Source information:
This 257-nucleotide part of an RNA from Thermoplasmatales archaeon I-plasma belongs to the Rfam family "Archaeal large subunit ribosomal RNA". The base pairs follow the family's consensus structure, which is taken from published work.
RNA sequence: GAGUUCUAAUCAGCGGCGAGGUUAAUUCCUUUAUGGAAGGAGCCGAAGCGAAAGCAAUAAGCCCGCACCGCAAGGGAGGGGCGACGUGAGCUCGCGUGAAGUCGCUGGUGGGAGACCCGAAGCCGGUCGAUCUAAUCUUGGGCAGGUUGAAGCCUAGCGAAAGCUGGGUGGAGGACCGAGCAGGUUCUGAUGUGCAAAUCGUUCUGUUGACCUGAGAUUAGGGGUUAAAGGCUAAUCUAGGCCGGUAAUAGCGGGUU
Numbered sequence: 001g002a003g004u005u006c007u008a009a010u011c012a013g014c015g016g017c018g019a020g021g022u023u024a025a026u027u028c029c030u031u032u033a034u035g036g037a038a039g040g041a042g043c044c045g046a047a048g049c050g051a052a053a054g055c056a057a058u059a060a061g062c063c064c065g066c067a068c069c070g071c072a073a074g075g076g077a078g079g080g081g082c083g084a085c086g087u088g089a090g091c092u093c094g095c096g097u098g099a100a101g102u103c104g105c106u107g108g109u110g111g112g113a114g115a116c117c118c119g120a121a122g123c124c125g126g127u128c129g130a131u132c133u134a135a136u137c138u139u140g141g142g143c144a145g146g147u148u149g150a151a152g153c154c155u156a157g158c159g160a161a162a163g164c165u166g167g168g169u170g171g172a173g174g175a176c177c178g179a180g181c182a183g184g185u186u187c188u189g190a191u192g193u194g195c196a197a198a199u200c201g202u203u204c205u206g207u208u209g210a211c212c213u214g215a216g217a218u219u220a221g222g223g224g225u226u227a228a229a230g231g232c233u234a235a236u237c238u239a240g241g242c243c244g245g246u247a248a249u250a251g252c253g254g255g256u257u
Stems, first nucleotide, its partner, number of pairs: 005113003009109009020044004026038004048055002061082004068075002085096004116255002119252001123245006132221011143209001145177004152169007181206004187201001189200002223233003